RNA sequence: AAAUAUAGAUGUUUACAAUCUCGUAUAAUCAUCGGGGAUAUGGCCCGAAAGUUUCUACCCAAAAGCCGUAAAGUUUUGGACUACGAGAGCGAAGCGAGGGGAU
Numbered sequence: 001a002a003a004u005a006u007a008g009a010u011g012u013u014u015a016c017a018a019u020c021u022c023g024u025a026u027a028a029u030c031a032u033c034g035g036g037g038a039u040a041u042g043g044c045c046c047g048a049a050a051g052u053u054u055c056u057a058c059c060c061a062a063a064a065g066c067c068g069u070a071a072a073g074u075u076u077u078g079g080a081c082u083a084c085g086a087g088a089g090c091g092a093a094g095c096g097a098g099g100g101g102a103u
Stems, first nucleotide, its partner, number of pairs: 019088007029050001032048005059079006

Shown here is a 103-nucleotide RNA sequence from Paenibacillus sp. HGF7, a member of the family "Purine riboswitch aptamer". Lineage of the source: Bacteria > Bacillati > Bacillota > Bacilli > Paenibacillus.